A member of the RNA family "Plastid-rpl16 group II-D1 intron" from Tofieldia thibetica, 48 nucleotides long.
Its family is annotated with Group II intron splicing in the Gene Ontology.
Rfam 15.1 lists 1,446 matches to the family in 693 species.
Rfam describes the family as follows. Plastid-rpl16 is a non-coding RNA (ncRNA) recognised in plastids. It was recognised in and intronic region of a ribosome rpl16 gene.
The literature on the family includes a 2023 paper in Plant Commun by Richter et al., "Retrograde signaling in plants: A critical review focusing on the GUN pathway and beyond".
[Rfam]
RNA sequence: AAGAGCCUUGAGUUAAUAAAAACUGAGGAGAUUAACUUAGGAACAAAU
Numbered sequence: 001a002a003g004a005g006c007c008u009u010g011a012g013u014u015a016a017u018a019a020a021a022a023c024u025g026a027g028g029a030g031a032u033u034a035a036c037u038u039a040g041g042a043a044c045a046a047a048u
Base pairs, nucleotide, nucleotide: 007041008040010038011037012036013035014034015033016032017031